RNA sequence: AGAAAGCAGGCUUUGGCAGACGGGGAUAAGGCAGAGCAUGAGGUGGAUUAAUCAACAGUAACCAGAGCUGUUGUUGCUCUCCCCAUGCACUGCCUCUUCCCUGGCUCUCUCUCUCUCUCUCUUC
Dot-bracket structure: .................((.((((((..((((((.(((((.(...((..............................))...)))))).))))))..)))))).))..................